The family of this 402-nucleotide sequence from Methyloceanibacter superfactus is "Alphaproteobacteria transfer-messenger RNA". Pairs were carried over by alignment from the consensus structure, which is taken from published work. From the family's description: Bacterial tmRNA, also known as 10Sa RNA or SsrA, is named for its dual tRNA and mRNA-like properties. The source organism's lineage runs through Bacteria, Alphaproteobacteria, Hyphomicrobiales, Hyphomicrobiaceae and Methyloceanibacter.

RNA sequence: AAUCUUUUUUUUGCCGCGCAAGAAGCCUAUAUAUGAGUCUGCCGGUGCAAGCCGGCUAUGGCGAUAAACGGGCGACGUAAUAAGCCAUUCGGACCCGGGGGCAGUACCCGGCGCCUCCACCAGGUUUCAGCUCGGGCGUUCUCGAAAGUGACGCGUUCCGAACUUCCAGCAGCCGAUCUGAAACGUGGCGGGGGCGAAACAGGAUCGACGAGGGUGUAAAAGUCGUGCUUUCGCUCGGCAUGGUACCGCCGUUAUCGGGCCAACCAAAUAGUUGCCAACGACAACUAUGCGGAGGCUCGUCUCGCUGCGUAGUCAGCGCGAUAGCCUGAAACUCAAGUCCUAAUCUCUUCGCAGGGGUUAGGCGCGGUUUCGGAGGGCACCGGGCAACAGAAGCCCUCCACU
Numbered sequence: 001a002a003u004c005u006u007u008u009u010u011u012u013g014c015c016g017c018g019c020a021a022g023a024a025g026c027c028u029a030u031a032u033a034u035g036a037g038u039c040u041g042c043c044g045g046u047g048c049a050a051g052c053c054g055g056c057u058a059u060g061g062c063g064a065u066a067a068a069c070g071g072g073c074g075a076c077g078u079a080a081u082a083a084g085c086c087a088u089u090c091g092g093a094c095c096c097g098g099g100g101g102c103a104g105u106a107c108c109c110g111g112c113g114c115c116u117c118c119a120c121c122a123g124g125u126u127u128c129a130g131c132u133c134g135g136g137c138g139u140u141c142u143c144g145a146a147a148g149u150g151a152c153g154c155g156u157u158c159c160g161a162a163c164u165u166c167c168a169g170c171a172g173c174c175g176a177u178c179u180g181a182a183a184c185g186u187g188g189c190g191g192g193g194g195c196g197a198a199a200c201a202g203g204a205u206c207g208a209c210g211a212g213g214g215u216g217u218a219a220a221a222g223u224c225g226u227g228c229u230u231u232c233g234c235u236c237g238g239c240a241u242g243g244u245a246c247c248g249c250c251g252u253u254a255u256c257g258g259g260c261c262a263a264c265c266a267a268a269u270a271g272u273u274g275c276c277a278a279c280g281a282c283a284a285c286u287a288u289g290c291g292g293a294g295g296c297u298c299g300u301c302u303c304g305c306u307g308c309g310u311a312g313u314c315a316g317c318g319c320g321a322u323a324g325c326c327u328g329a330a331a332c333u334c335a336a337g338u339c340c341u342a343a344u345c346u347c348u349u350c351g352c353a354g355g356g357g358u359u360a361g362g363c364g365c366g367g368u369u370u371c372g373g374a375g376g377g378c379a380c381c382g383g384g385c386a387a388c389a390g391a392a393g394c395c396c397u398c399c400a401c402u
Base pairs, nucleotide, nucleotide: 041056042055043054044053045052060235061234062233063232064231070228072226073225074224075223076222085214086213089211090210091209095111096110097109098108099107112196113195114194115193116192117191118190236251237250238249239248241262242261243260246258247257365382366381367380368379372399373398374397375396376395377394